Shown here is a 136-nucleotide RNA sequence from Paractinoplanes tereljensis, a member of the family "c-di-AMP riboswitch aptamer (ydaO/yuaA leader)".
A search with the family's covariance model found it, with a score of 88 bits.
[Rfam]
RNA sequence: ACGGGAUCGCCGCUUAAUCGCCCGCGAGGGCGAGCCGGGGAACCAAUGUUCCUUGGGGUGAAUCCGCGCAAGCGGUAGGGGUCACUUCCACCCCGAACCCGUCAGCUAACUCGGUCGGCGGCCGACGGAAGGAAAU
Number, nucleotide and partner (000 for none) at each position: 001a000002c000003g000004g000005g000006a000007u000008c000009g000010c000011c120012g119013c118014u117015u000016a000017a000018u033019c032020g031021c030022c029023c028024g000025c000026g000027a000028g023029g022030g021031c020032g019033a018034g115035c114036c113037g112038g111039g110040g000041a000042a000043c000044c055045a054046a000047u000048g000049u000050u000051c000052c000053u000054u045055g044056g100057g099058g098059u000060g000061a000062a000063u000064c075065c074066g073067c072068g000069c000070a000071a000072g067073c066074g065075g064076u000077a000078g094079g093080g092081g091082u000083c000084a000085c000086u000087u000088c000089c000090a000091c081092c080093c079094c078095g000096a000097a000098c058099c057100c056101g000102u000103c000104a000105g000106c000107u000108a000109a000110c039111u038112c037113g036114g035115u034116c000117g014118g013119c012120g011121g000122c000123c000124g000125a000126c000127g000128g000129a000130a000131g000132g000133a000134a000135a000136u000